[Rfam]
The record is a 71-nucleotide sequence from Ophiophagus hannah, which matches "mir-2985 microRNA precursor family" in Rfam. The organism belongs to Ophiophagus, within Eukaryota.

RNA sequence: CUCAUUAAGGUGGGUGGAAUAGUAUAACAAUAUGGUCAAUGUUGUUAUAGUAUCCCACCUACCCUGAUGUA
Numbered sequence: 001c002u003c004a005u006u007a008a009g010g011u012g013g014g015u016g017g018a019a020u021a022g023u024a025u026a027a028c029a030a031u032a033u034g035g036u037c038a039a040u041g042u043u044g045u046u047a048u049a050g051u052a053u054c055c056c057a058c059c060u061a062c063c064c065u066g067a068u069g070u071a
Base pairs, nucleotide, nucleotide: 003069004068005067006066007065009063010062011061012060013059014058015057016056017055019053020052021051023049024048025047026046027045028044029043030042031041032040033039

It is one of the family's seed sequences. Pairs were carried over by alignment from the consensus structure, which was predicted with RNAalifold. Rfam's curators write: RNAs can be post-transcriptional modified, in micro RNAs (miRNA) editing of pre-mRNA is a common process.